Shown here is a 170-nucleotide RNA from Candidatus Tokpelaia sp. JSC189, a member of the family "speF leader".
By type it is a cis-regulatory leader.
The match comes from Rfam's covariance-model search (68 bits).
About the family: This family is a putative regulatory RNA structure that is found upstream of the speF gene encoding ornithine decarboxylase in Agrobacterium tumefaciens and other alpha-proteobacteria.
A reference for the family is Corbino et al. (2005), "Evidence for a second class of S-adenosylmethionine riboswitches and other regulatory RNA motifs in alpha-proteobacteria", Genome Biol.
The family's consensus secondary structure was predicted with RNAalifold.

RNA sequence: AUCCAGCUCUGAAUCCAAAGCUGGGAUGCUGUAGAGGCACACCUUCAUUGCCUUCAGUGCGGAAGCGGUUUUCCAAUUCCAAUCGAAAAGGCAGAUAAAACAGAACAAUGCGGCAUCCGUACUGUUCUUUAAAAGUGGUCUGACAUCCGUUUUAUGUUCAGGGGUGUUGU
Number, nucleotide and partner (000 for none) at each position: 001a000002u025003c024004c023005a022006g021007c020008u019009c000010u000011g000012a000013a000014u000015c000016c000017a000018a000019a008020g007021c006022u005023g004024g003025g002026a000027u000028g000029c000030u000031g000032u000033a000034g000035a000036g052037g051038c050039a049040c000041a000042c000043c000044u000045u000046c000047a000048u000049u039050g038051c037052c036053u000054u000055c000056a000057g000058u000059g000060c000061g000062g000063a000064a000065g000066c000067g000068g000069u000070u000071u000072u000073c000074c000075a000076a000077u000078u000079c000080c000081a000082a000083u095084c094085g000086a000087a000088a000089a000090g000091g000092c000093a000094g084095a083096u000097a000098a000099a000100a000101c000102a000103g159104a158105a157106c156107a155108a000109u000110g000111c000112g000113g000114c000115a000116u000117c000118c000119g000120u000121a000122c000123u000124g000125u000126u000127c000128u000129u000130u000131a000132a000133a000134a000135g000136u000137g000138g000139u000140c000141u000142g000143a000144c000145a000146u000147c000148c000149g000150u000151u000152u000153u000154a000155u107156g106157u105158u104159c103160a000161g000162g000163g000164g000165u000166g000167u000168u000169g000170u000